[Rfam]
RNA sequence: AAGGCUAGCGCGGGAGAGACCCCGGUUCGACCGGGGCGCCGAAGGAGCAACCGCCCCCGGAAUCUCUCAGGCUGAAGGACCGCGCCUGGCCG
Numbered sequence: 001a002a003g004g005c006u007a008g009c010g011c012g013g014g015a016g017a018g019a020c021c022c023c024g025g026u027u028c029g030a031c032c033g034g035g036g037c038g039c040c041g042a043a044g045g046a047g048c049a050a051c052c053g054c055c056c057c058c059g060g061a062a063u064c065u066c067u068c069a070g071g072c073u074g075a076a077g078g079a080c081c082g083c084g085c086c087u088g089g090c091c092g
Stems, first nucleotide, its partner, number of pairs: 008085006020036004038072003041068002045066003051059001
The family of this 92-nucleotide sequence from Sphingomonas xanthus is "Glycine riboswitch aptamer". The pairing is the family consensus, mapped onto this sequence. The match comes from Rfam's covariance-model search (70 bits).